[Rfam]
RNA: Plastid-psbA-1 3UTR RNA
Organism: Echinacea angustifolia
RNA sequence: UUGAAGCUCCAUCUACAAAUGGAUAAGCCUUUGGUCUGAUUGUAUAGGAGUUUUUGAACUAAAAAAGGAGCAAUAAUGCCCUCUUGAUAAAACAAGAGGAAAGCUAUUGCUCCUUUUUU
Numbered sequence: 001u002u003g004a005a006g007c008u009c010c011a012u013c014u015a016c017a018a019a020u021g022g023a024u025a026a027g028c029c030u031u032u033g034g035u036c037u038g039a040u041u042g043u044a045u046a047g048g049a050g051u052u053u054u055u056g057a058a059c060u061a062a063a064a065a066a067g068g069a070g071c072a073a074u075a076a077u078g079c080c081c082u083c084u085u086g087a088u089a090a091a092a093c094a095a096g097a098g099g100a101a102a103g104c105u106a107u108u109g110c111u112c113c114u115u116u117u118u119u
Base pairs, nucleotide, nucleotide: 008023009022010021011020012019064116065115066114067113068112069111070110071109072108073107074106075105081098082097083096084095085094